[Rfam]
A member of the RNA family "MIR161 microRNA precursor family" from Capsella rubella, 134 nucleotides long. Pairs were carried over by alignment from the consensus structure, which was predicted with RNAalifold.
RNA sequence: GUUAUUGCGUCGAUCAAUGCAUUGAAAGUGACUACAUCGGGGCUCUGUGAUUAUACUUUUGCUCUCUCGCAAGGAGAAAAAAACAAAUUAAUCAGCCCCGGUUUAGUCACCUUCACUGCAUUAAUCAAUGCAUC
Number, nucleotide and partner (000 for none) at each position: 001g000002u000003u000004a000005u000006u132007g131008c130009g129010u000011c000012g126013a125014u124015c000016a122017a121018u120019g119020c118021a117022u000023u115024g114025a113026a112027a000028g110029u109030g108031a107032c106033u105034a104035c000036a102037u101038c100039g099040g098041g097042g096043c000044u000045c000046u000047g084048u083049g000050a000051u080052u079053a000054u000055a000056c000057u000058u000059u000060u000061g000062c000063u000064c000065u000066c000067u000068c000069g000070c000071a000072a000073g000074g000075a000076g000077a000078a000079a052080a051081a000082a000083a048084c047085a000086a000087a000088u000089u000090a000091a000092u000093c000094a000095g000096c042097c041098c040099c039100g038101g037102u036103u000104u034105a033106g032107u031108c030109a029110c028111c000112u026113u025114c024115a023116c000117u021118g020119c019120a018121u017122u016123a000124a014125u013126c012127a000128a000129u009130g008131c007132a006133u000134c000
The family has 4 seed sequences and 14 matches in Rfam 15.1.